[Rfam]
RNA: Group II catalytic intron D1-D4-6
RNA sequence: AGAGUCCCUGUCAGGCAAGGUCUAGCCAACUACCUGUAUCGAGUGUUGCACCGAUGCUAGCGACAGCAAAGGUGAAGCGUACACAGAGAAUCAAAUAGGCCAUAGGGGAGACCGUAAUCCCUGAAGCAUAUUCAGCCCCGUAAAUCGUGUUCCUAGUAAAAUAGGAAGAAUGCAGAUGACGACGUGUUUAACGUUACGGAAGUCAAUACAAGAGAAUCGUUAUUGGUGAGAUUCUUGAGGGUCUGUCGGGGUCAUAGAACA
Numbered sequence: 001a002g003a004g005u006c007c008c009u010g011u012c013a014g015g016c017a018a019g020g021u022c023u024a025g026c027c028a029a030c031u032a033c034c035u036g037u038a039u040c041g042a043g044u045g046u047u048g049c050a051c052c053g054a055u056g057c058u059a060g061c062g063a064c065a066g067c068a069a070a071g072g073u074g075a076a077g078c079g080u081a082c083a084c085a086g087a088g089a090a091u092c093a094a095a096u097a098g099g100c101c102a103u104a105g106g107g108g109a110g111a112c113c114g115u116a117a118u119c120c121c122u123g124a125a126g127c128a129u130a131u132u133c134a135g136c137c138c139c140g141u142a143a144a145u146c147g148u149g150u151u152c153c154u155a156g157u158a159a160a161a162u163a164g165g166a167a168g169a170a171u172g173c174a175g176a177u178g179a180c181g182a183c184g185u186g187u188u189u190a191a192c193g194u195u196a197c198g199g200a201a202g203u204c205a206a207u208a209c210a211a212g213a214g215a216a217u218c219g220u221u222a223u224u225g226g227u228g229a230g231a232u233u234c235u236u237g238a239g240g241g242u243c244u245g246u247c248g249g250g251g252u253c254a255u256a257g258a259a260c261a
Stems, first nucleotide, its partner, number of pairs: 012036004019031003023229001025227002039087002043084004047079002049074004055068004135252006172246006178204003183198004209240001212236007
Dot-bracket structure: ...........((((...(((.[.[[..))).))))..((..((((((((((..((((......))))..))))...)).)))).))...............................................((((((...............................(((((((((..((((........))))...)))....(..(((((((.......]].])))))))...))))))))))))).........